Rfam assigns this 78-nucleotide sequence from Microlunatus parietis to the family "ZMP/ZTP riboswitch aptamer (pfl RNA motif)". The base pairs follow the family's consensus structure, which is taken from published work. On this family, see Jones and Ferre-D'Amare, Nat Struct Mol Biol 2015: "Recognition of the bacterial alarmone ZMP through long-distance association of two RNA subdomains". Lineage of the source: Bacteria > Actinomycetota > Propionibacteriales > Propionibacteriaceae > Microlunatus.
RNA sequence: AAGCGUCACCGCGACUGGCGUCGGAUGGGCCACCAUCGGGAAGCACCGGUCGAGAAGUCGUCCGCCUGGGCUUCUCGC
Numbered sequence: 001a002a003g004c005g006u007c008a009c010c011g012c013g014a015c016u017g018g019c020g021u022c023g024g025a026u027g028g029g030c031c032a033c034c035a036u037c038g039g040g041a042a043g044c045a046c047c048g049g050u051c052g053a054g055a056a057g058u059c060g061u062c063c064g065c066c067u068g069g070g071c072u073u074c075u076c077g078c
Stems, first nucleotide, its partner, number of pairs: 005050003011044002015040002017066004025036004055073005